[Rfam]
Nucleotides: 086
Base pairs, nucleotide, nucleotide: 034067035066036065039063040062041059042058043057044056045055047053
Number, partner (000 for none) and nucleotide at each position: 001000a002000c003000u004000g005000a006000c007000c008000a009000a010000c011000a012000c013000a014000a015000c016000g017000a018000a019000a020000g021000c022000c023000c024000u025000a026000c027000c028000u029000c030000u031000c032000u033000u034067u035066c036065g037000u038000c039063u040062u041059u042058a043057c044056g045055g046000c047053u048000c049000c050000g051000a052000u053047g054000a055045c056044c057043g058042u059041g060000c061000c062040a063039a064000a065036c066035g067034a068000a069000u070000u071000g072000u073000c074000c075000a076000a077000c078000a079000a080000a081000a082000c083000u084000u085000u086000a

This 86-nucleotide sequence from Pullulanibacillus camelliae belongs to the Rfam family "BsrC". It scores 61 bits against the family's covariance model. The literature on the family includes a 2008 paper in Gene by Saito et al., "Novel small RNA-encoding genes in the intergenic regions of Bacillus subtilis". The source organism's lineage runs through Bacteria, Bacillota, Bacilli, Sporolactobacillaceae and Pullulanibacillus. By type it is a small RNA. The 301 nucleotide sequence from Kouji Nakamura has been trimmed to a highly conserved ~85 nucleotide long core to form this family.